[Rfam]
RNA sequence: GGUGUUUGUAACAGCAACUUGCUGCGAUCGGUGAUAUCGCCACCGAUGUGAUAAGGCAGGCCGCAGUUUGCGAAAGAAACGAAUUCACCACGCUCGAACAUGAUGAUUUGAGCGUCUUCACUUAAUCGACGUGCGCGUGCAGCAGCAGAUGCGCCACCGGCAACACCGC
Numbered sequence: 001g002g003u004g005u006u007u008g009u010a011a012c013a014g015c016a017a018c019u020u021g022c023u024g025c026g027a028u029c030g031g032u033g034a035u036a037u038c039g040c041c042a043c044c045g046a047u048g049u050g051a052u053a054a055g056g057c058a059g060g061c062c063g064c065a066g067u068u069u070g071c072g073a074a075a076g077a078a079a080c081g082a083a084u085u086c087a088c089c090a091c092g093c094u095c096g097a098a099c100a101u102g103a104u105g106a107u108u109u110g111a112g113c114g115u116c117u118u119c120a121c122u123u124a125a126u127c128g129a130c131g132u133g134c135g136c137g138u139g140c141a142g143c144a145g146c147a148g149a150u151g152c153g154c155c156a157c158c159g160g161c162a163a164c165a166c167c168g169c
Stems, first nucleotide, its partner, number of pairs: 001167006008161002012024005032056001035053006060071002076154001084147001088142001092140002095137002099133001101131002104128005110123003114119001

Overview:
Vibrio RNA AS7: a 169-nucleotide RNA sequence from Photobacterium aphoticum. For this family Rfam cites "Experimental discovery of sRNAs in Vibrio cholerae by direct cloning, 5S/tRNA depletion and parallel sequencing" (Liu et al., Nucleic Acids Res, 2009). Taxonomically the source falls in Photobacterium (Bacteria, Pseudomonadati, Pseudomonadota, Gammaproteobacteria).